The record is an 81-nucleotide RNA sequence, which matches "Small nucleolar RNA R16" in Rfam. Gene Ontology terms of the family: nucleolus and RNA processing. Rfam 15.1 lists 884 matches to the family in 222 species. Rfam classes the family as a C/D-box small nucleolar RNA.
RNA sequence: UGGCAAAUGAUGAGUAGAAUCUUAUCCUACACACAGAUGUAUCAGUGUUGACUACCAAUCUCUGCUUAUUAUCUGAUGCCA
Numbered sequence: 001u002g003g004c005a006a007a008u009g010a011u012g013a014g015u016a017g018a019a020u021c022u023u024a025u026c027c028u029a030c031a032c033a034c035a036g037a038u039g040u041a042u043c044a045g046u047g048u049u050g051a052c053u054a055c056c057a058a059u060c061u062c063u064g065c066u067u068a069u070u071a072u073c074u075g076a077u078g079c080c081a
Stems, first nucleotide, its partner, number of pairs: 001081005